[Rfam]
RNA sequence: AAUAGGAGGAAACAAAAUGAACUAAGUUCAUUUUAUGUAAAUGUUUCCGACGAAUAGCCACCGACCGAAGGGCGGGGAAAUACAUAUU
Number, nucleotide and partner (000 for none) at each position: 001a000002a000003u000004a000005g000006g000007a000008g048009g047010a046011a045012a044013c043014a000015a000016a032017a031018u030019g029020a028021a027022c000023u000024a000025a000026g000027u021028u020029c019030a018031u017032u016033u000034u000035a000036u000037g000038u000039a000040a000041a000042u000043g013044u012045u011046u010047c009048c008049g000050a000051c000052g000053a000054a000055u000056a000057g000058c077059c076060a000061c075062c074063g000064a000065c071066c070067g000068a000069a000070g066071g065072g000073c000074g062075g061076g059077g058078a000079a000080a000081u000082a000083c000084a000085u000086a000087u000088u000